[Rfam]
RNA sequence: UCGAAGCGCCAUCUAAAAAUGGAUAAGAUGGUGGUCGGAGUGUAUAUUAGUUUUUGAAAUAAAAGGAGCAAUAACCCCCUUCUUGGUCUAUCAAGAGGGCGUUAUUGUUU
Numbered sequence: 001u002c003g004a005a006g007c008g009c010c011a012u013c014u015a016a017a018a019a020u021g022g023a024u025a026a027g028a029u030g031g032u033g034g035u036c037g038g039a040g041u042g043u044a045u046a047u048u049a050g051u052u053u054u055u056g057a058a059a060u061a062a063a064a065g066g067a068g069c070a071a072u073a074a075c076c077c078c079c080u081u082c083u084u085g086g087u088c089u090a091u092c093a094a095g096a097g098g099g100c101g102u103u104a105u106u107g108u109u110u
Stems, first nucleotide, its partner, number of pairs: 009022004066110009077099001080097005
RNA: Plastid-psbA-1 3UTR RNA
Organism: Trimeris anceps